[Rfam]
Nucleotides: 094
Base pairs, nucleotide, nucleotide: 001094002093003092004091005090006089010086011085013084014083017082018081020079021078022077024073025072026071027070028067029066030065034062035061036060037059038058039057043055045054046053047052
Number, partner (000 for none) and nucleotide at each position: 001094c002093g003092g004091g005090g006089g007000a008000g009000u010086g011085c012000a013084g014083g015000a016000u017082c018081c019000u020079g021078g022077g023000c024073u025072g026071u027070g028067u029066c030065c031000a032000u033000u034062c035061g036060u037059u038058g039057c040000c041000c042000u043055g044000g045054g046053g047052c048000c049000c050000a051000g052047g053046c054045u055043c056000u057039g058038c059037a060036a061035u062034g063000c064000u065030g066029g067028a068000a069000u070027c071026g072025u073024g074000c075000u076000c077022c078021c079020c080000u081018g082017g083014c084013c085011g086010c087000g088000g089006c090005u091004c092003c093002c094001g
A member of the RNA family "mir-8799 microRNA precursor family" from Vulpes vulpes, 94 nucleotides long. Taxonomically the source falls in Vulpes (Eukaryota, Craniata, Gnathostomata, Tetrapoda). A search with the family's covariance model found it, with a score of 56 bits.